[Rfam]
RNA: c-di-GMP-I riboswitch aptamer
RNA sequence: ACUUGAAAAGGGCAAACCAAGCGAGAGCUUGAGGCGCAAAGUGACCGGUCUGACGGCUUCGGCCAAGACAGCGGGACUGCCAAG
Numbered sequence: 001a002c003u004u005g006a007a008a009a010g011g012g013c014a015a016a017c018c019a020a021g022c023g024a025g026a027g028c029u030u031g032a033g034g035c036g037c038a039a040a041g042u043g044a045c046c047g048g049u050c051u052g053a054c055g056g057c058u059u060c061g062g063c064c065a066a067g068a069c070a071g072c073g074g075g076a077c078u079g080c081c082a083a084g
Base pairs, nucleotide, nucleotide: 012037013036018031019030020029021028022027040078041077042076045074046073047072048069049068050067055064056063057062